[Rfam]
RNA sequence: AAGGUUUACAAUGAAUUCCCGAUAGGACGGCCACAACCGGUCGGAAGCCUUGUAACCGAAUAUUUAAGGGGGAAUAGAAGAAUAUG
Numbered sequence: 001a002a003g004g005u006u007u008a009c010a011a012u013g014a015a016u017u018c019c020c021g022a023u024a025g026g027a028c029g030g031c032c033a034c035a036a037c038c039g040g041u042c043g044g045a046a047g048c049c050u051u052g053u054a055a056c057c058g059a060a061u062a063u064u065u066a067a068g069g070g071g072g073a074a075u076a077g078a079a080g081a082a083u084a085u086g
Base pairs, nucleotide, nucleotide: 016074017073018072019071020070024050025049026048028043029042030041031040032039056069057068
Record summary
A member of the RNA family "SAM-III riboswitch aptamer (SMK box)" from Alkalibacterium sp. AK22, 86 nucleotides long. On this family, see Fuchs et al., Proc Natl Acad Sci U S A 2007: "S-adenosylmethionine directly inhibits binding of 30S ribosomal subunits to the SMK box translational riboswitch RNA". The source organism's lineage runs through Bacteria, Bacillati, Bacillota, Lactobacillales and Alkalibacterium. It scores 57 bits against the family's covariance model.